[Rfam]
Shown here is a 375-nucleotide RNA from Brockia lithotrophica, a member of the family "Bacterial RNase P class B". Lineage of the source: Bacteria > Bacillota > Thermicanales > Thermicanaceae > Brockia. Rfam classes the family as a ribozyme. Ribonuclease P (RNase P) is a ubiquitous endoribonuclease, found in archaea, bacteria and eukarya as well as chloroplasts and mitochondria.

RNA sequence: AGGUGCGGGCAACCGCUGCUCCGCGCGCCGCGCGGGGUAGAGGAAAGUCCCGGCUCGCCCGGGCUGCGAUGCCCGGAGUGUUCGGGCCCGCCGUAAGGCGGGGCGGGGAUCCUCCCCGACGGCGGUGAAAGGGACUCCCGGAGUCCCGAGUAGCCUGAAAGUGCCACAGUGACGCAGCCUUCCGGCGACGGAAGGGUGAAACGCGGUAAACCCCCCGAGCGAGAAACCCAAAAUUUGGUAGGGGAACCCUCCGGAGGGAAAUGAACCGAAGGAGGGAUCGGACGCGUACGCGUCCGAUAGAUAGAUGGUUGCCGCUUCCGUGCGAGGGGUGGCGUCCCGUUUGCAGCACGGAAGUACAGAACCGGGCUUACAGCA
Numbered sequence: 001a002g003g004u005g006c007g008g009g010c011a012a013c014c015g016c017u018g019c020u021c022c023g024c025g026c027g028c029c030g031c032g033c034g035g036g037g038u039a040g041a042g043g044a045a046a047g048u049c050c051c052g053g054c055u056c057g058c059c060c061g062g063g064c065u066g067c068g069a070u071g072c073c074c075g076g077a078g079u080g081u082u083c084g085g086g087c088c089c090g091c092c093g094u095a096a097g098g099c100g101g102g103g104c105g106g107g108g109a110u111c112c113u114c115c116c117c118g119a120c121g122g123c124g125g126u127g128a129a130a131g132g133g134a135c136u137c138c139c140g141g142a143g144u145c146c147c148g149a150g151u152a153g154c155c156u157g158a159a160a161g162u163g164c165c166a167c168a169g170u171g172a173c174g175c176a177g178c179c180u181u182c183c184g185g186c187g188a189c190g191g192a193a194g195g196g197u198g199a200a201a202c203g204c205g206g207u208a209a210a211c212c213c214c215c216c217g218a219g220c221g222a223g224a225a226a227c228c229c230a231a232a233a234u235u236u237g238g239u240a241g242g243g244g245a246a247c248c249c250u251c252c253g254g255a256g257g258g259a260a261a262u263g264a265a266c267c268g269a270a271g272g273a274g275g276g277a278u279c280g281g282a283c284g285c286g287u288a289c290g291c292g293u294c295c296g297a298u299a300g301a302u303a304g305a306u307g308g309u310u311g312c313c314g315c316u317u318c319c320g321u322g323c324g325a326g327g328g329g330u331g332g333c334g335u336c337c338c339g340u341u342u343g344c345a346g347c348a349c350g351g352a353a354g355u356a357c358a359g360a361a362c363c364g365g366g367c368u369u370a371c372a373g374c375a
Base pairs, nucleotide, nucleotide: 004375005374006373007371008313009312010311011310012309013308014307016040017039018038019037020036021035022034023033045369046368047367049366050365051364052363053362054223055222056221057220058219059076060075061074062073063072064071082218083217084216085215086214087102088101089100090099091098092097103120104118105117106116107115108114109113121213122212124155125154126153132146133145134144135143136142137141161211162210163207164206165205178195179194180193181192182191183190184189227243228242229241247276248275249274250273251272252271277298278297279296280295281294282293283292284291285290315354316353317352318351319350320349321348322347323346